The record is a 98-nucleotide RNA sequence from Microbacterium telephonicum, which matches "mraW RNA" in Rfam. The organism belongs to Microbacterium, within Bacteria. A search with the family's covariance model found it, with a score of 65 bits. By type it is a cis-regulatory element.
RNA sequence: UCUGACCCGCCGACCCUGACCUCCAGCCGCACGCCCUGGCGCACUUCCCCGGUGCCAGGUCGCGGCGGAUGGGGAUCAGGAUCUGCGGACCGGACCCC
Numbered sequence: 001u002c003u004g005a006c007c008c009g010c011c012g013a014c015c016c017u018g019a020c021c022u023c024c025a026g027c028c029g030c031a032c033g034c035c036c037u038g039g040c041g042c043a044c045u046u047c048c049c050c051g052g053u054g055c056c057a058g059g060u061c062g063c064g065g066c067g068g069a070u071g072g073g074g075a076u077c078a079g080g081a082u083c084u085g086c087g088g089a090c091c092g093g094a095c096c097c098c
Base pairs, nucleotide, nucleotide: 010085012083013082015080016079018077019076021074022073023072024071025070027068028067029066030065032062033061035059036058037057038056039055040054041053042052